[Rfam]
RNA sequence: GAAAGCAGGAGAGGUGAUCGCAAUCGAGAUUUAUCGCGUUUCCGCAAUAAACUCUCGGUUGAGGAAAGUCCGGGCUCCCAGAUGGUCCAACUUGCUGGGUAACUCCCAGUGCGGGUGACCGUGAGGAUAGUGCCACAGAAACACACCGCCGAUGUCUCAUAGAGCACAGGCAAGGGUGCAAAGGUGCGGUAAGAGCGCACCAGCAGUAUCGAGAGGUACUGGCUUGGUAAACCCCGGUUGGGUGCAAGGCAAAGGUUUUAGGAUGACCAUUUUGCCUAUUUCCUAUUUAAAGCCGCUCGAGGCUGUUGGAGACAACAGUCCCAGAUAGAUGAUCACCCACUAACCAAUUUUGGAUAGUGAACAGAACCCGGCUUACUUCCUGCUUUCUUUC
Numbered sequence: 001g002a003a004a005g006c007a008g009g010a011g012a013g014g015u016g017a018u019c020g021c022a023a024u025c026g027a028g029a030u031u032u033a034u035c036g037c038g039u040u041u042c043c044g045c046a047a048u049a050a051a052c053u054c055u056c057g058g059u060u061g062a063g064g065a066a067a068g069u070c071c072g073g074g075c076u077c078c079c080a081g082a083u084g085g086u087c088c089a090a091c092u093u094g095c096u097g098g099g100u101a102a103c104u105c106c107c108a109g110u111g112c113g114g115g116u117g118a119c120c121g122u123g124a125g126g127a128u129a130g131u132g133c134c135a136c137a138g139a140a141a142c143a144c145a146c147c148g149c150c151g152a153u154g155u156c157u158c159a160u161a162g163a164g165c166a167c168a169g170g171c172a173a174g175g176g177u178g179c180a181a182a183g184g185u186g187c188g189g190u191a192a193g194a195g196c197g198c199a200c201c202a203g204c205a206g207u208a209u210c211g212a213g214a215g216g217u218a219c220u221g222g223c224u225u226g227g228u229a230a231a232c233c234c235c236g237g238u239u240g241g242g243u244g245c246a247a248g249g250c251a252a253a254g255g256u257u258u259u260a261g262g263a264u265g266a267c268c269a270u271u272u273u274g275c276c277u278a279u280u281u282c283c284u285a286u287u288u289a290a291a292g293c294c295g296c297u298c299g300a301g302g303c304u305g306u307u308g309g310a311g312a313c314a315a316c317a318g319u320c321c322c323a324g325a326u327a328g329a330u331g332a333u334c335a336c337c338c339a340c341u342a343a344c345c346a347a348u349u350u351u352g353g354a355u356a357g358u359g360a361a362c363a364g365a366a367c368c369c370g371g372c373u374u375a376c377u378u379c380c381u382g383c384u385u386u387c388u389u390u391c
Base pairs, nucleotide, nucleotide: 001387002386003385004384005383006382007381008380009379010378011376013337014336015335016334017333018332019331021061022060023059024058025057026056027055028054029053066374067373068372070371071370072369073368074367075244077242078241090239092237093236094235095109096108097107098106099105110124111122112121113120114119125234126233130232131231132228133227134226146175147174148171149170150169153168154167155166157164183201184200185199186198187197188196203223204221205220206219207218208217209216210215248294249293250292259285260284261283262282263281269279301320302319303318304317305316306315307314308313
The record is a 391-nucleotide RNA sequence from Prochlorococcus marinus, which matches "Bacterial RNase P class A" in Rfam. Gene Ontology terms of the family: ribonuclease P activity, dimeric ribonuclease P complex and tRNA processing. Rfam describes the family as follows. Ribonuclease P (RNase P) is a ubiquitous endoribonuclease, found in archaea, bacteria and eukarya as well as chloroplasts and mitochondria. Pairs were carried over by alignment from the consensus structure, which is taken from published work.